[Rfam]
RNA sequence: CUAAUACGGGGCGAUGGAGUUCGCCGUAACCGCCGCGAGGCUGAUGACUCCUACCAGAGG
Numbered sequence: 001c002u003a004a005u006a007c008g009g010g011g012c013g014a015u016g017g018a019g020u021u022c023g024c025c026g027u028a029a030c031c032g033c034c035g036c037g038a039g040g041c042u043g044a045u046g047a048c049u050c051c052u053a054c055c056a057g058a059g060g
Stems, first nucleotide, its partner, number of pairs: 010025004016051006032041003
Dot-bracket structure: .........[[[[..((((((]]]]......(((....)))....)))))).........
RNA: Fluoride riboswitch aptamer (crcB RNA motif)